[Rfam]
RNA sequence: GCUGGGUGUGGUGGCGAGCGCCUGUAACCUAGCUACUUGGAGGCCAGGGUGCGGGAUUUCGCGAAACCGGAAGUUCUGGCAUAUGGGUGCUCAUGUUGAUUGGGCGUCCACUCUAAGCACGGAACCGAUGUGGAUGACCAGUCGGAGGAUGGGUUGUCAAGGUCGUCUAUGAGGGGUGGACCGGCCCAGGGGGGGGAACCCAGCAGGCAAAAGUCCCCGCGUGGUGCGGUAGCGGGAUAGCGCCUGUGAAUGGUGGCCAUGUGACAGCCCAGUCGGCGCGUGAAGACCACCUCCUUA
Numbered sequence: 001g002c003u004g005g006g007u008g009u010g011g012u013g014g015c016g017a018g019c020g021c022c023u024g025u026a027a028c029c030u031a032g033c034u035a036c037u038u039g040g041a042g043g044c045c046a047g048g049g050u051g052c053g054g055g056a057u058u059u060c061g062c063g064a065a066a067c068c069g070g071a072a073g074u075u076c077u078g079g080c081a082u083a084u085g086g087g088u089g090c091u092c093a094u095g096u097u098g099a100u101u102g103g104g105c106g107u108c109c110a111c112u113c114u115a116a117g118c119a120c121g122g123a124a125c126c127g128a129u130g131u132g133g134a135u136g137a138c139c140a141g142u143c144g145g146a147g148g149a150u151g152g153g154u155u156g157u158c159a160a161g162g163u164c165g166u167c168u169a170u171g172a173g174g175g176g177u178g179g180a181c182c183g184g185c186c187c188a189g190g191g192g193g194g195g196g197a198a199c200c201c202a203g204c205a206g207g208c209a210a211a212a213g214u215c216c217c218c219g220c221g222u223g224g225u226g227c228g229g230u231a232g233c234g235g236g237a238u239a240g241c242g243c244c245u246g247u248g249a250a251u252g253g254u255g256g257c258c259a260u261g262u263g264a265c266a267g268c269c270c271a272g273u274c275g276g277c278g279c280g281u282g283a284a285g286a287c288c289a290c291c292u293c294c295u296u297a
Base pairs, nucleotide, nucleotide: 001044002043003042004023005022006021007020008019009018029040030039046295047294048293049292051290053288054287057285058284059283060282061281062280063279066273067272069270070269076267077266078265080263081262082261083260084259085258086257088255091253092252093251094250096248101246102245103244104243105242106241107240108236109235111234113232114231115230117227118226119225120224122222125219126165127164128163129162131160133158134157135156136155137154138153139152141150142149143148167171173217174216175215176214177213184208185207186206191201192200193199